[Rfam]
RNA sequence: UCGGUCUAAAUCAUUGUGAGUCUAUAAUUUGAAAAUUGAACUCACACAAAAUAGUGGGACAUACAUUGAUUUCACCCAA
Numbered sequence: 001u002c003g004g005u006c007u008a009a010a011u012c013a014u015u016g017u018g019a020g021u022c023u024a025u026a027a028u029u030u031g032a033a034a035a036u037u038g039a040a041c042u043c044a045c046a047c048a049a050a051a052u053a054g055u056g057g058g059a060c061a062u063a064c065a066u067u068g069a070u071u072u073c074a075c076c077c078a079a
Stems, first nucleotide, its partner, number of pairs: 001079001003077002008072006015065004022057003025053002028050004